Shown here is a 78-nucleotide RNA sequence, a member of the family "pemK RNA". Rfam's curators put it in the seed alignment.

RNA sequence: ACAAUGAUACGCCUGCAUAGUCGAGGUUAGGUCCCGGAGUGCAGCCCGGAGGUUCUCGGGGAGGUGAAAUUCCUGUGA
Numbered sequence: 001a002c003a004a005u006g007a008u009a010c011g012c013c014u015g016c017a018u019a020g021u022c023g024a025g026g027u028u029a030g031g032u033c034c035c036g037g038a039g040u041g042c043a044g045c046c047c048g049g050a051g052g053u054u055c056u057c058g059g060g061g062a063g064g065u066g067a068a069a070u071u072c073c074u075g076u077g078a
Stems, first nucleotide, its partner, number of pairs: 012075001013044006045061003049057003062074003